[Rfam]
RNA sequence: UCACGCAGCUGCGACUGGCGUUGAGGUGGUCUACCACCAGGGAGCAGCUGACGCACGACCGCGGGACCGUACGCCUGGGCCCCCACG
Numbered sequence: 001u002c003a004c005g006c007a008g009c010u011g012c013g014a015c016u017g018g019c020g021u022u023g024a025g026g027u028g029g030u031c032u033a034c035c036a037c038c039a040g041g042g043a044g045c046a047g048c049u050g051a052c053g054c055a056c057g058a059c060c061g062c063g064g065g066a067c068c069g070u071a072c073g074c075c076u077g078g079g080c081c082c083c084c085a086c087g
Base pairs, nucleotide, nucleotide: 006050007049008048009047010046011045012044015041016040017075018074019073020072021071026037027036028035029034064082065081067079068078
The record is an 87-nucleotide RNA from Aeromicrobium sp. IC_218, which matches "ZMP/ZTP riboswitch aptamer (pfl RNA motif)" in Rfam.